Rfam assigns this 125-nucleotide sequence from Acidovorax sp. CF316 to the family "Glycine riboswitch aptamer". From the family's description: This family represents the bacterial glycine riboswitch. Glycine riboswitches usually consist of two metabolite-binding aptamers domains with similar structures in tandem. The aptamers cooperatively bind glycine to regulate the expression of downstream genes. In Bacillus subtilis, this riboswitch is found upstream of the gcvT operon which controls glycine degradation. Lineage of the source: Bacteria > Pseudomonadati > Betaproteobacteria > Burkholderiales > Acidovorax.

RNA sequence: CGUUCCCUUGCUGGAGAGAGGUGGCCGCGCAGCACAGCGCAGGCCAUCCACCGAAGGAGCAAGCCGCAGCCGCCAGCCAGGGUGGUGCGGUGAAUCUCUCAGGUAAAGCGGACAGCAGGCAAAUC
Numbered sequence: 001c002g003u004u005c006c007c008u009u010g011c012u013g014g015a016g017a018g019a020g021g022u023g024g025c026c027g028c029g030c031a032g033c034a035c036a037g038c039g040c041a042g043g044c045c046a047u048c049c050a051c052c053g054a055a056g057g058a059g060c061a062a063g064c065c066g067c068a069g070c071c072g073c074c075a076g077c078c079a080g081g082g083u084g085g086u087g088c089g090g091u092g093a094a095u096c097u098c099u100c101a102g103g104u105a106a107a108g109c110g111g112a113c114a115g116c117a118g119g120c121a122a123a124u125c
Stems, first nucleotide, its partner, number of pairs: 007119007020048007050104003053100002057098003063091006